[Rfam]
RNA: mir-129 microRNA precursor family
Organism: Xenopus tropicalis
RNA sequence: UCAAAGCUUUUUGCGGUCUGGGCUUGCUGUUCUCAAUCAAAGUAUCCAGGAAGCCCUUAUCCCAAAAAGAAUUUG
Numbered sequence: 001u002c003a004a005a006g007c008u009u010u011u012u013g014c015g016g017u018c019u020g021g022g023c024u025u026g027c028u029g030u031u032c033u034c035a036a037u038c039a040a041a042g043u044a045u046c047c048a049g050g051a052a053g054c055c056c057u058u059a060u061c062c063c064a065a066a067a068a069g070a071a072u073u074u075g
Base pairs, nucleotide, nucleotide: 007069008068009067010066011065012064013063015061016060017059020056021055022054023053025051027049028048